[Rfam]
RNA: permuted transfer-messenger RNA
Nucleotides: 220
Base pairs, nucleotide, nucleotide: 001141002140003139004138005137014131015130016129026119027118028117030116031115032114036052037051038050039049040048053101054100055099056098057097058096059095142157143156144155145154
Number, partner (000 for none) and nucleotide at each position: 001141g002140g003139c004138g005137a006000u007000a008000a009000a010000c011000g012000g013000c014131a015130g016129g017000u018000g019000g020000a021000a022000u023000a024000a025000g026119u027118g028117u029000u030116g031115c032114g033000g034000a035000c036052c037051c038050g039049g040048g041000g042000g043000c044000a045000g046000u047000g048040c049039c050038c051037g052036g053101c054100g055099c056098c057097u058096c059095c060000a061000c062000c063000a064000u065000u066000c067000g068000a069000u070000c071000c072000c073000c074000c075000g076000a077000g078000g079000u080000c081000g082000u083000u084000c085000g086000g087000g088000g089000c090000a091000g092000g093000a094000u095059g096058g097057g098056g099055g100054c101053g102000a103000a104000a105000c106000a107000g108000g109000u110000u111000c112000g113000a114032c115031g116030c117028g118027c119026a120000u121000g122000g123000u124000a125000a126000a127000g128000c129016c130015c131014u132000g133000u134000c135000u136000u137005u138004u139003g140002c141001c142157c143156g144155g145154c146000a147000u148000u149000g150000u151000a152000c153000c154145g155144c156143c157142g158000u159000u160000a161000u162000c163000g164000g165000g166000c167000u168000a169000a170000u171000u172000c173000a174000u175000a176000a177000g178000u179000g180000c181000c182000a183000a184000c185000g186000a187000u188000a189000a190000c191000a192000g193000c194000c195000g196000c197000g198000a199000g200000g201000c202000u203000g204000u205000g206000g207000c208000g209000c210000u211000c212000g213000c214000u215000g216000c217000c218000u219000a220000a